Shown here is an 82-nucleotide RNA sequence from Alligator mississippiensis, a member of the family "Mammalian CPEB3 ribozyme". Its family is annotated with RNA nuclease activity in the Gene Ontology. It scores 43 bits against the family's covariance model.
[Rfam]
RNA sequence: AUUGUAUUAUGGGGGGCAUGGCAGAAGCAUUUAACCUGCGAGCCCUGUCAGGUAAUACCUGGUAAUAUCUGUGAAUUCUGUU
Numbered sequence: 001a002u003u004g005u006a007u008u009a010u011g012g013g014g015g016g017c018a019u020g021g022c023a024g025a026a027g028c029a030u031u032u033a034a035c036c037u038g039c040g041a042g043c044c045c046u047g048u049c050a051g052g053u054a055a056u057a058c059c060u061g062g063u064a065a066u067a068u069c070u071g072u073g074a075a076u077u078c079u080g081u082u
Stems, first nucleotide, its partner, number of pairs: 013045003017040001020082007027039003049071006